The record is a 277-nucleotide RNA from Colobus angolensis, which matches "Mason-Pfizer monkey virus packaging signal" in Rfam. Rfam links the family to the GO term viral genome packaging. From the family's description: This family represents a group of sequences that are related to the Mason-Pfizer monkey virus (MPMV) packaging signal. The packaging signal is located in the 5' UTR and is required for specific RNA encapsidation.
[Rfam]
RNA sequence: UGGCACCCGAACAGGGACCUGGACACGGGGGAAGAAGUGAGGAAGAAGGCACUAAGGUCAGCCGAAAUUAAAAGUGGAAGAAAAACUCCUCCGGACACCACGGGAGCCUGCUGCGUCAUAACCAGAGGUGAGUAACAGUGCCUGAUUAUGGGACAAGAAUUAAGCCAGCAUCAAAUUUAUAUAGGGCAAUUAAAAGAGGCUUUAAAAGCACGAGCAGUAAAGGUUAAAAGUAAUGAUUUGUUUAAAUUUUUUGAUUUUGUGAAAGAUACCUGCCCUU
Numbered sequence: 001u002g003g004c005a006c007c008c009g010a011a012c013a014g015g016g017a018c019c020u021g022g023a024c025a026c027g028g029g030g031g032a033a034g035a036a037g038u039g040a041g042g043a044a045g046a047a048g049g050c051a052c053u054a055a056g057g058u059c060a061g062c063c064g065a066a067a068u069u070a071a072a073a074g075u076g077g078a079a080g081a082a083a084a085a086c087u088c089c090u091c092c093g094g095a096c097a098c099c100a101c102g103g104g105a106g107c108c109u110g111c112u113g114c115g116u117c118a119u120a121a122c123c124a125g126a127g128g129u130g131a132g133u134a135a136c137a138g139u140g141c142c143u144g145a146u147u148a149u150g151g152g153a154c155a156a157g158a159a160u161u162a163a164g165c166c167a168g169c170a171u172c173a174a175a176u177u178u179a180u181a182u183a184g185g186g187c188a189a190u191u192a193a194a195a196g197a198g199g200c201u202u203u204a205a206a207a208g209c210a211c212g213a214g215c216a217g218u219a220a221a222g223g224u225u226a227a228a229a230g231u232a233a234u235g236a237u238u239u240g241u242u243u244a245a246a247u248u249u250u251u252u253g254a255u256u257u258u259g260u261g262a263a264a265g266a267u268a269c270c271u272g273c274c275c276u277u
Stems, first nucleotide, its partner, number of pairs: 006031003015024001038046001086130001088128001090125001095119001099115001101113003138154002141152004161204003164200003211253004216248003221239006262277002265274001267272001